[Rfam]
RNA: Fluoride riboswitch aptamer (crcB RNA motif)
Organism: Dermatophilaceae bacterium
RNA sequence: CUGUGCCACGGCGAUGGAUCCCGCCUGGGCACCCGAGUGCCCGAACCGCCGACCGGCUGAUGGUUCCUGUCCGUCC
Numbered sequence: 001c002u003g004u005g006c007c008a009c010g011g012c013g014a015u016g017g018a019u020c021c022c023g024c025c026u027g028g029g030c031a032c033c034c035g036a037g038u039g040c041c042c043g044a045a046c047c048g049c050c051g052a053c054c055g056g057c058u059g060a061u062g063g064u065u066c067c068u069g070u071c072c073g074u075c076c
Base pairs, nucleotide, nucleotide: 010025011024012023013022016067017066018065020063021062048057049056050055